[Rfam]
RNA sequence: GGAGGCAGGGGAAGCACGGCCACGCAGCCAACACACAGGGAGCUUGCUCCCCAGCACGCUGCGGGGAAAGUCCCCGUGCCUUUGGGCAGAGAGUGUCAUUGGGAGACCAAAGGUCAGUGCCUGAAGCUUGCAGUGAAGCUUUGUGUGGAGCUGUUAGCUUGGGAGCUGGCCACUUGCAGCAGCACAGUUAUGCCGUGAGCACUCGACGUGGGUGCCAACUGAACGGGGCUCAUUCUCCCCAUGCCUC
Numbered sequence: 001g002g003a004g005g006c007a008g009g010g011g012a013a014g015c016a017c018g019g020c021c022a023c024g025c026a027g028c029c030a031a032c033a034c035a036c037a038g039g040g041a042g043c044u045u046g047c048u049c050c051c052c053a054g055c056a057c058g059c060u061g062c063g064g065g066g067a068a069a070g071u072c073c074c075c076g077u078g079c080c081u082u083u084g085g086g087c088a089g090a091g092a093g094u095g096u097c098a099u100u101g102g103g104a105g106a107c108c109a110a111a112g113g114u115c116a117g118u119g120c121c122u123g124a125a126g127c128u129u130g131c132a133g134u135g136a137a138g139c140u141u142u143g144u145g146u147g148g149a150g151c152u153g154u155u156a157g158c159u160u161g162g163g164a165g166c167u168g169g170c171c172a173c174u175u176g177c178a179g180c181a182g183c184a185c186a187g188u189u190a191u192g193c194c195g196u197g198a199g200c201a202c203u204c205g206a207c208g209u210g211g212g213u214g215c216c217a218a219c220u221g222a223a224c225g226g227g228g229c230u231c232a233u234u235c236u237c238c239c240c241a242u243g244c245c246u247c
Stems, first nucleotide, its partner, number of pairs: 002247005008240005015197006023063006038051005069230002072228004085097004099110004112171003118164001120162001124160004128153001130151002138146002199215006

Description:
The record is a 247-nucleotide RNA sequence from Symbiodinium microadriaticum, which matches "RNase MRP" in Rfam. RNase MRP is an enzymatically active ribonucleoprotein with two distinct roles in eukaryotes. In mitochondria it plays a direct role in the initiation of mitochondrial DNA replication. In the nucleus it is involved in precursor rRNA processing, where it cleaves the internal transcribed spacer 1 between 18S and 5.8S rRNAs. Pairs were carried over by alignment from the consensus structure, which is taken from published work.